The record is a 58-nucleotide RNA sequence from Monodelphis domestica, which matches "mir-7371 microRNA precursor family" in Rfam. Rfam links the family to the GO terms RISC complex and miRNA-mediated post-transcriptional gene silencing. Rfam's curators put it in the seed alignment. The organism belongs to Monodelphis, within Eukaryota.
RNA sequence: UUUGUAUAAGAUGCUCCAUUGUGUAAAUACCAUCAAAUAGAGCAUGCUUGUACAAAGA
Numbered sequence: 001u002u003u004g005u006a007u008a009a010g011a012u013g014c015u016c017c018a019u020u021g022u023g024u025a026a027a028u029a030c031c032a033u034c035a036a037a038u039a040g041a042g043c044a045u046g047c048u049u050g051u052a053c054a055a056a057g058a
Stems, first nucleotide, its partner, number of pairs: 001056007009048002011045006019037002022035002